[Rfam]
RNA: S10-Clostridia ribosomal protein leader
Organism: [Clostridium] polysaccharolyticum
RNA sequence: UGAUAGCUAAGAAGCGUGAGGUUGCCUUGCAGAGAGCAAGGGUUUUCCGUGGAGCGAAUGCUGAGUUAGGAAACUGGCGACAA
Number, nucleotide and partner (000 for none) at each position: 001u000002g000003a000004u000005a000006g000007c000008u000009a000010a000011g000012a000013a000014g050015c049016g048017u000018g047019a046020g045021g044022u000023u000024g000025c041026c040027u039028u038029g037030c000031a000032g000033a000034g000035a000036g000037c029038a028039a027040g026041g025042g000043u000044u021045u020046u019047c018048c016049g015050u014051g000052g000053a000054g000055c000056g000057a000058a000059u082060g081061c000062u079063g000064a000065g078066u077067u076068a075069g000070g000071a000072a000073a000074c000075u068076g067077g066078c065079g062080a000081c060082a059083a000